This 70-nucleotide RNA from Pelagibacterales bacterium SAG-MED34 belongs to the Rfam family "bablM sRNA". It is annotated as a small RNA. Lineage of the source: Bacteria > Pseudomonadati > Pseudomonadota > Alphaproteobacteria > Candidatus Pelagibacterales.

RNA sequence: GACUCAAAAUAAUUCAAUCUCAGGUUGACGGAGACUCUACUCUGGAGUCUAAUUCAUAAUUAAAAAAUGA
Numbered sequence: 001g002a003c004u005c006a007a008a009a010u011a012a013u014u015c016a017a018u019c020u021c022a023g024g025u026u027g028a029c030g031g032a033g034a035c036u037c038u039a040c041u042c043u044g045g046a047g048u049c050u051a052a053u054u055c056a057u058a059a060u061u062a063a064a065a066a067a068u069g070a
Stems, first nucleotide, its partner, number of pairs: 014028005032050003036046003